[Rfam]
RNA sequence: GUUGAAGCUCCAUCUACAAAUGGGUAAGACCGGGUUUUAGUAUAUACGAGUUUUUUAAAAUAUAAAAAAAAGGAGCAAUACAUCUUUCUUGUUCUAUCAAGAGAGCGAUAUUGCUCCUUUUUU
Numbered sequence: 001g002u003u004g005a006a007g008c009u010c011c012a013u014c015u016a017c018a019a020a021u022g023g024g025u026a027a028g029a030c031c032g033g034g035u036u037u038u039a040g041u042a043u044a045u046a047c048g049a050g051u052u053u054u055u056u057a058a059a060a061u062a063u064a065a066a067a068a069a070a071a072g073g074a075g076c077a078a079u080a081c082a083u084c085u086u087u088c089u090u091g092u093u094c095u096a097u098c099a100a101g102a103g104a105g106c107g108a109u110a111u112u113g114c115u116c117c118u119u120u121u122u123u
Stems, first nucleotide, its partner, number of pairs: 009024005069120012084105001086103005

Shown here is a 123-nucleotide RNA, a member of the family "Plastid-psbA-1 3UTR RNA". Rfam's curators write: Plastid psbA-1 is a non-coding RNA (ncRNA) present in plastids. It was identified in inverted repeat sequences in the 3 prime untranslate region (3UTR) of photosystem II quinone-binding protein (psbA). Rfam's curators put it in the seed alignment.